[Rfam]
RNA sequence: UCCAGCAGUAGUCAGCCGUCCCAGACACUCCUGUGACGGUGUUACCCUGCUGGGAGAGUAAUGUGUGCUCUUGGCCUGGCCACUGCGUCACCGUUCUGGUGGCCUGUGGCUCUGGUGUAAGAAGGAACUUUGCUUCCCCGAGAGAGCGCUAAGCGUCCGCUCUGACGGCUUAGCUCCAGUGUGGGAGCAGACAGC
Numbered sequence: 001u002c003c004a005g006c007a008g009u010a011g012u013c014a015g016c017c018g019u020c021c022c023a024g025a026c027a028c029u030c031c032u033g034u035g036a037c038g039g040u041g042u043u044a045c046c047c048u049g050c051u052g053g054g055a056g057a058g059u060a061a062u063g064u065g066u067g068c069u070c071u072u073g074g075c076c077u078g079g080c081c082a083c084u085g086c087g088u089c090a091c092c093g094u095u096c097u098g099g100u101g102g103c104c105u106g107u108g109g110c111u112c113u114g115g116u117g118u119a120a121g122a123a124g125g126a127a128c129u130u131u132g133c134u135u136c137c138c139c140g141a142g143a144g145a146g147c148g149c150u151a152a153g154c155g156u157c158c159g160c161u162c163u164g165a166c167g168g169c170u171u172a173g174c175u176c177c178a179g180u181g182u183g184g185g186a187g188c189a190g191a192c193a194g195c
Stems, first nucleotide, its partner, number of pairs: 001054008011045002015040006021033001024030002063128002066125001069122003076115002078111006085104001089101004130190008146176001148174001150172005158167002

The record is a 195-nucleotide RNA from Rattus norvegicus, which matches "Small nucleolar RNA SNORA74" in Rfam. The family has 24 seed sequences and 1,348 matches in Rfam 15.1. From the family's description: U19 belongs to the H/ACA class of snoRNAs. snoRNAs bind a number of proteins (including dyskerin, Gar1p and Nop10p in the case of the H/ACA class) to form snoRNP complexes. This class are thought to guide the sites of modification of uridines to pseudouridines by forming direct base pairing interactions with substrate RNAs. Targets may include ribosomal and spliceosomal RNAs but the exact functions of many snoRNAs, including U19, are not confirmed. Co-precipitation of U19 snoRNA with RNase MRP RNA suggests that U19 may be involved in pre-rRNA processing. Pairs were carried over by alignment from the consensus structure, which was predicted with PFOLD. The source organism's lineage runs through Eukaryota, Craniata, Theria, Muroidea and Rattus. Gene Ontology terms of the family: nucleolus and RNA processing. The literature on the family includes a 1997 paper in Genes Dev by Ganot et al., "The family of box ACA small nucleolar RNAs is defined by an evolutionarily conserved secondary structure and ubiquitous sequence elements essential for RNA accumulation". Rfam classes the family as an H/ACA-box small nucleolar RNA.